Rfam assigns this 126-nucleotide RNA sequence from Eschrichtius robustus to the family "Small nucleolar RNA SNORA77". Gene Ontology terms of the family: nucleolus and RNA processing. The family's consensus secondary structure was predicted with RNAalifold. A reference for the family is Schattner et al. (2006), "A computational screen for mammalian pseudouridylation guide H/ACA RNAs", RNA.
[Rfam]
RNA sequence: GCAGACUCACUCUGCACCUGGCUGCAGCCCCAGGCGGGUGCUUUUUCCGUCUGCCACAGCAGCAUUCCGGGGGGCUGUGACCACUUUGACCUGUCAAGGGCAACGCAGCCACCCCGGUACACAGGU
Numbered sequence: 001g002c003a004g005a006c007u008c009a010c011u012c013u014g015c016a017c018c019u020g021g022c023u024g025c026a027g028c029c030c031c032a033g034g035c036g037g038g039u040g041c042u043u044u045u046u047c048c049g050u051c052u053g054c055c056a057c058a059g060c061a062g063c064a065u066u067c068c069g070g071g072g073g074g075c076u077g078u079g080a081c082c083a084c085u086u087u088g089a090c091c092u093g094u095c096a097a098g099g100g101c102a103a104c105g106c107a108g109c110c111a112c113c114c115c116g117g118u119a120c121a122c123a124g125g126u
Base pairs, nucleotide, nucleotide: 001054002053003052004051005050006049014041015040016039017038018037019036020035022033023032024031067117068116069115070114071113072112074109075108076107077106078105079104084100085099086098